[Rfam]
RNA sequence: GGUCAUGAGUGCCAGUGCCAAGCCCCGGCUCGCUGGUCGGCAACCCUCCUGCGACGGCGGGGUGCUCCGGGUGAGGACCUGGCCGGUCGGCAGUCGACCGGCAAGCGUCGAAC
Numbered sequence: 001g002g003u004c005a006u007g008a009g010u011g012c013c014a015g016u017g018c019c020a021a022g023c024c025c026c027g028g029c030u031c032g033c034u035g036g037u038c039g040g041c042a043a044c045c046c047u048c049c050u051g052c053g054a055c056g057g058c059g060g061g062g063u064g065c066u067c068c069g070g071g072u073g074a075g076g077a078c079c080u081g082g083c084c085g086g087u088c089g090g091c092a093g094u095c096g097a098c099c100g101g102c103a104a105g106c107g108u109c110g111a112a113c
Stems, first nucleotide, its partner, number of pairs: 001079004009038001011037006021030002039066003044062003048057002082102009